[Rfam]
RNA sequence: UUCGAAGGCCGCUAGGGUUCCGGCCGGGCAAAUGCCCGGCGCUGGUCCGAGAGCGGCGGUCAUGCGGGAGACAUCCGCAUGAUGCACGGCGGGACAAAAGCCCGGGAGAG
Numbered sequence: 001u002u003c004g005a006a007g008g009c010c011g012c013u014a015g016g017g018u019u020c021c022g023g024c025c026g027g028g029c030a031a032a033u034g035c036c037c038g039g040c041g042c043u044g045g046u047c048c049g050a051g052a053g054c055g056g057c058g059g060u061c062a063u064g065c066g067g068g069a070g071a072c073a074u075c076c077g078c079a080u081g082a083u084g085c086a087c088g089g090c091g092g093g094a095c096a097a098a099a100g101c102c103c104g105g106g107a108g109a110g
Base pairs, nucleotide, nucleotide: 008057009056010055011054012053015048016047020045021044022042023040024039025038026037027036028035059083060082061081062080063079064078065077066076085105087108091103092102093101

The family of this 110-nucleotide RNA sequence from Acidocella sp. MX-AZ02 is "Guanidine-I riboswitch aptamer". The base pairs follow the family's consensus structure.